[Rfam]
RNA sequence: CGUCACGCCCGCUGUAAUAUGUAAUCAUCAAAGCGUGUAUUUUACUCGCUUGGUGUUACUUCUUACAGUGAGUGCGACG
Numbered sequence: 001c002g003u004c005a006c007g008c009c010c011g012c013u014g015u016a017a018u019a020u021g022u023a024a025u026c027a028u029c030a031a032a033g034c035g036u037g038u039a040u041u042u043u044a045c046u047c048g049c050u051u052g053g054u055g056u057u058a059c060u061u062c063u064u065a066c067a068g069u070g071a072g073u074g075c076g077a078c079g
Base pairs, nucleotide, nucleotide: 006074007073008072010070011069012068013067015065016064017063026055027054028053029052030051032050033049034048
This 79-nucleotide RNA sequence from Drosophila grimshawi belongs to the Rfam family "mir-971 microRNA precursor family". It scores 74 bits against the family's covariance model. Pairs were carried over by alignment from the consensus structure, which was predicted with RNAalifold. The organism belongs to Hawaiian Drosophila, within Eukaryota.